Annotation:
The record is a 142-nucleotide RNA from Brevibacillus sp. WF146, which matches "c-di-AMP riboswitch aptamer (ydaO/yuaA leader)" in Rfam. Gene Ontology terms of the family: cyclic-di-AMP binding and regulation of gene expression. Rfam's curators write: This family represents a conserved RNA structure found upstream of the ydaO and yuaA genes in Bacillus subtilis and related genes in other bacteria.
RNA sequence: CAUCGAAAUUAGCCGAAUUCCGCUAUGCGGAAACGGGGGACCCACGUUUUUCGGGGUGAAUGGCAGCCGCUUGCCGGCCGCCUAGGGCAAUCCUUUCGACCGAACCCAUCAGCUAACCUCGUAGGCUCAGGAAAGGAGCAGU
Number, nucleotide and partner (000 for none) at each position: 001c000002a000003u000004c000005g000006a000007a000008a000009u000010u000011a127012g126013c125014c124015g000016a000017a000018u032019u031020c030021c000022g000023c000024u000025a000026u000027g000028c000029g000030g020031a019032a018033a122034c121035g120036g119037g118038g117039g000040a000041c000042c000043c053044a000045c000046g000047u000048u000049u000050u000051u000052c000053g043054g107055g106056g105057u000058g000059a000060a000061u000062g082063g081064c080065a000066g000067c000068c000069g000070c000071u000072u000073g000074c000075c000076g000077g000078c000079c000080g064081c063082c062083u000084a000085g101086g100087g000088c098089a000090a000091u000092c000093c000094u000095u000096u000097c000098g088099a000100c086101c085102g000103a000104a000105c056106c055107c054108a000109u000110c000111a000112g000113c000114u000115a000116a000117c038118c037119u036120c035121g034122u033123a000124g014125g013126c012127u011128c000129a000130g000131g000132a000133a000134a000135g000136g000137a000138g000139c000140a000141g000142u000